[Rfam]
RNA: U1 spliceosomal RNA
RNA sequence: AUACUUACCUGGACGGGGUCAAUGGGCGAUCAAUAAGACCUAUGGCCUAGGCUUGUGACCUCCAUUGCACUUUGGAGGGGUGCCUGCCUAAGGUCGGCCCAAGUGGUCGAGCCUACGUCAUAAUUUGUUACAGCGGGGGCCUGCGUUCGCGCGGCCCUACC
Dot-bracket structure: ...........((((((((((.((((............))))))))))(((.(.(((.(((((..........)).))).)))..)))).((((((.((.....)).))).))).))))...............(.(((..((((....))))..))).).
Numbered sequence: 001a002u003a004c005u006u007a008c009c010u011g012g013a014c015g016g017g018g019u020c021a022a023u024g025g026g027c028g029a030u031c032a033a034u035a036a037g038a039c040c041u042a043u044g045g046c047c048u049a050g051g052c053u054u055g056u057g058a059c060c061u062c063c064a065u066u067g068c069a070c071u072u073u074g075g076a077g078g079g080g081u082g083c084c085u086g087c088c089u090a091a092g093g094u095c096g097g098c099c100c101a102a103g104u105g106g107u108c109g110a111g112c113c114u115a116c117g118u119c120a121u122a123a124u125u126u127g128u129u130a131c132a133g134c135g136g137g138g139g140c141c142u143g144c145g146u147u148c149g150c151g152c153g154g155c156c157c158u159a160c161c
Stems, first nucleotide, its partner, number of pairs: 012119004016048006023042004049089003053086001055083003059079003062075002091114003094110003098106002135160001137158003142153004